[Rfam]
RNA sequence: AAAUAAAAAGGUGAUGGAGUUCACCAUUAAGUGCGAAAGCUAAUGACUCCUACUCUUAA
Numbered sequence: 001a002a003a004u005a006a007a008a009a010g011g012u013g014a015u016g017g018a019g020u021u022c023a024c025c026a027u028u029a030a031g032u033g034c035g036a037a038a039g040c041u042a043a044u045g046a047c048u049c050c051u052a053c054u055c056u057u058a059a
Base pairs, nucleotide, nucleotide: 010025011024012023013022016050017049018048019047020046021045033040034039